[Rfam]
RNA sequence: GGCGCGAUUGGACAAAAAGACCCCAUGAAGCUUUACUGUAGCUUAAUAUUGGGACGCUUUAAUUCAUUUAGAGAAUAGGUGGGAGAUUUUGAAGUAGAUUCGCUAGGAUCUAUGGAGUCGCCAGUGGAAUACCACCAUUGUAUUAAGGUUUCUCUAACUUACUCCCGUGAAUCCGGUUGAAGGACAGUGUUAGGUGGGCAGUUUGACUGGGGCGGUCGCCUCCCAAAAGGUAACGGAGGCGCGCAAUGGUACACUCAACAUGGUUGGAAAUCAUGUGCAGAGCGUAAUGGUAUAAGUGUGCUUGACUGUGAGACUGAUAGGUCGAACAGGUAGGAAACUAGGUCAUAGUGAUCCGGUGGUUCGGUAUGGAACGGCCAUCGCUCAACAGAUAAAAGCUACUCUGGGGAUAACAGGCUGAUACUGCCCAAGAGUUCAUAUCGACGGCAGUGUUUGGCACCUCGAUGUCGACUCAUCUCAUCCUGGAGCUGAAGCAGGUUCCAAGGGUUCGGCUGUUCGCCGAUUAAAGAGAUACGUGAGUUGGGUUCAAACCGUCGUGAGACAGGUUGGUUUUUAUCUGUCGUGCCCGUA
Numbered sequence: 001g002g003c004g005c006g007a008u009u010g011g012a013c014a015a016a017a018a019g020a021c022c023c024c025a026u027g028a029a030g031c032u033u034u035a036c037u038g039u040a041g042c043u044u045a046a047u048a049u050u051g052g053g054a055c056g057c058u059u060u061a062a063u064u065c066a067u068u069u070a071g072a073g074a075a076u077a078g079g080u081g082g083g084a085g086a087u088u089u090u091g092a093a094g095u096a097g098a099u100u101c102g103c104u105a106g107g108a109u110c111u112a113u114g115g116a117g118u119c120g121c122c123a124g125u126g127g128a129a130u131a132c133c134a135c136c137a138u139u140g141u142a143u144u145a146a147g148g149u150u151u152c153u154c155u156a157a158c159u160u161a162c163u164c165c166c167g168u169g170a171a172u173c174c175g176g177u178u179g180a181a182g183g184a185c186a187g188u189g190u191u192a193g194g195u196g197g198g199c200a201g202u203u204u205g206a207c208u209g210g211g212g213c214g215g216u217c218g219c220c221u222c223c224c225a226a227a228a229g230g231u232a233a234c235g236g237a238g239g240c241g242c243g244c245a246a247u248g249g250u251a252c253a254c255u256c257a258a259c260a261u262g263g264u265u266g267g268a269a270a271u272c273a274u275g276u277g278c279a280g281a282g283c284g285u286a287a288u289g290g291u292a293u294a295a296g297u298g299u300g301c302u303u304g305a306c307u308g309u310g311a312g313a314c315u316g317a318u319a320g321g322u323c324g325a326a327c328a329g330g331u332a333g334g335a336a337a338c339u340a341g342g343u344c345a346u347a348g349u350g351a352u353c354c355g356g357u358g359g360u361u362c363g364g365u366a367u368g369g370a371a372c373g374g375c376c377a378u379c380g381c382u383c384a385a386c387a388g389a390u391a392a393a394a395g396c397u398a399c400u401c402u403g404g405g406g407a408u409a410a411c412a413g414g415c416u417g418a419u420a421c422u423g424c425c426c427a428a429g430a431g432u433u434c435a436u437a438u439c440g441a442c443g444g445c446a447g448u449g450u451u452u453g454g455c456a457c458c459u460c461g462a463u464g465u466c467g468a469c470u471c472a473u474c475u476c477a478u479c480c481u482g483g484a485g486c487u488g489a490a491g492c493a494g495g496u497u498c499c500a501a502g503g504g505u506u507c508g509g510c511u512g513u514u515c516g517c518c519g520a521u522u523a524a525a526g527a528g529a530u531a532c533g534u535g536a537g538u539u540g541g542g543u544u545c546a547a548a549c550c551g552u553c554g555u556g557a558g559a560c561a562g563g564u565u566g567g568u569u570u571u572u573a574u575c576u577g578u579c580g581u582g583c584c585c586g587u588a
Base pairs, nucleotide, nucleotide: 001584002583003582004581005580006579007578008577010576011575012574014571015570022405023404024403025402027401028400029397030396031395032394033393035202036201037200038199042194043193044192045191046190047189048188051154052153053152054151056149057148058147059146060145061144062143063142065140066139068137078136079135080134081133082132085119086118087117094113095112096111097110098109099108100107101106158182159181160180162179165176166175167174205217206216207215208214218240219239220238221237222236223235241386243343244342249301250300251299252298253297254296255281256280258276259275260274261273262272263271282291283290306329307328308327309326312323313322314321331340332339333338354380355379356378357377358376359375360374362373363372414455415454416453418452419449420448421447422446423445424444425443429439430438466541467539468538469537470536471533472530473529474528475527476526479504480503482499483498484497485496486495487494506520507519508518509517510516547565548564549563550562551560552559553558